A member of the RNA family "MIR6217 microRNA precursor family" from Miscanthus lutarioriparius, 229 nucleotides long.
Taxonomically the source falls in Miscanthus (Eukaryota, Viridiplantae, Poaceae, Andropogoneae).
RNA sequence: UGGCUACAAAAUAACUUAUUCUAUAGCCACUUUGAGUUACGAUAAUUAUUAUGUUAAUUUACGAUAUUAUAGUAACUCCUUACAAAGUGGUUUACUAUAACGUUAUGGUAAAUAUCCCCAUAUGUUAUAAUAACCUAAUUAUCGUAAAUAUGUAUUGAUAUUAUAGUAAAUUAGUAUAUAGUAAUUAUCAUAACUCAAAGUGGCCACAUAAUUACUUAUUCUGCGGCCA
Numbered sequence: 001u002g003g004c005u006a007c008a009a010a011a012u013a014a015c016u017u018a019u020u021c022u023a024u025a026g027c028c029a030c031u032u033u034g035a036g037u038u039a040c041g042a043u044a045a046u047u048a049u050u051a052u053g054u055u056a057a058u059u060u061a062c063g064a065u066a067u068u069a070u071a072g073u074a075a076c077u078c079c080u081u082a083c084a085a086a087g088u089g090g091u092u093u094a095c096u097a098u099a100a101c102g103u104u105a106u107g108g109u110a111a112a113u114a115u116c117c118c119c120a121u122a123u124g125u126u127a128u129a130a131u132a133a134c135c136u137a138a139u140u141a142u143c144g145u146a147a148a149u150a151u152g153u154a155u156u157g158a159u160a161u162u163a164u165a166g167u168a169a170a171u172u173a174g175u176a177u178a179u180a181g182u183a184a185u186u187a188u189c190a191u192a193a194c195u196c197a198a199a200g201u202g203g204c205c206a207c208a209u210a211a212u213u214a215c216u217u218a219u220u221c222u223g224c225g226g227c228c229a
Stems, first nucleotide, its partner, number of pairs: 001229005007223002010220005016214001018212003022208001024206001026204008037193003041189007050178013065165003069161003074155001080147004087142006093132002096129008107117002